[Rfam]
RNA: Purine riboswitch aptamer
RNA sequence: ACUAAACAAAUGUUUAUUGCGUGUAUAUGCUUAGGAAUAUGGCUUAAGCGUUUCUACCUGGUAACCUUAAACUACCGGACUACAUGAAGAAUGACUGAAUAC
Number, nucleotide and partner (000 for none) at each position: 001a000002c000003u000004a000005a000006a000007c000008a000009a000010a000011u000012g000013u000014u000015u000016a000017u000018u088019g000020c086021g085022u084023g083024u082025a081026u000027a000028u000029g049030c048031u047032u046033a045034g044035g043036a000037a000038u000039a000040u000041g000042g000043c035044u034045u033046a032047a031048g030049c029050g000051u000052u000053u000054c000055u000056a000057c000058c078059u077060g076061g075062u074063a073064a000065c000066c000067u000068u000069a000070a000071a000072c000073u063074a062075c061076c060077g059078g058079a000080c000081u025082a024083c023084a022085u021086g020087a000088a018089g000090a000091a000092u000093g000094a000095c000096u000097g000098a000099a000100u000101a000102c000